The record is a 136-nucleotide sequence from Ureibacillus terrenus, which matches "FMN riboswitch aptamer (RFN element)" in Rfam. The match comes from Rfam's covariance-model search (122 bits). For this family Rfam cites "Regulation of riboflavin biosynthesis and transport genes in bacteria by transcriptional and translational attenuation" (Vitreschak et al., Nucleic Acids Res, 2002). Lineage of the source: Bacteria > Bacillati > Bacillota > Caryophanaceae > Ureibacillus.
Nucleotides: 136
Base pairs, nucleotide, nucleotide: 003134004133005132006131007130008129009128010127017029018028019027031116032115033106034105035066036065037064038063061104062103069081070080071079086102087101088100089099090098108119109118110117
Number, partner (000 for none) and nucleotide at each position: 001000a002000a003134u004133c005132a006131u007130c008129u009128u010127c011000g012000g013000g014000g015000c016000a017029g018028g019027g020000u021000g022000a023000a024000a025000u026000u027019c028018c029017c030000g031116a032115c033106c034105g035066g036065c037064g038063g039000u040000g041000u042000u043000a044000g045000a046000a047000c048000u049000u050000c051000g052000c053000g054000u055000u056000c057000u058000u059000a060000a061104g062103c063038c064037c065036g066035c067000g068000a069081g070080c071079u072000c073000u074000u075000u076000a077000u078000g079071a080070g081069c082000a083000g084000g085000a086102u087101u088100u089099g090098g091000u092000g093000a094000g095000a096000u097000u098090c099089c100088a101087a102086a103062g104061c105034c106033g107000a108119c109118a110117g111000u112000a113000u114000a115032g116031u117110c118109u119108g120000g121000a122000u123000g124000g125000g126000a127010g128009a129008a130007g131006a132005u133004g134003g135000u136000a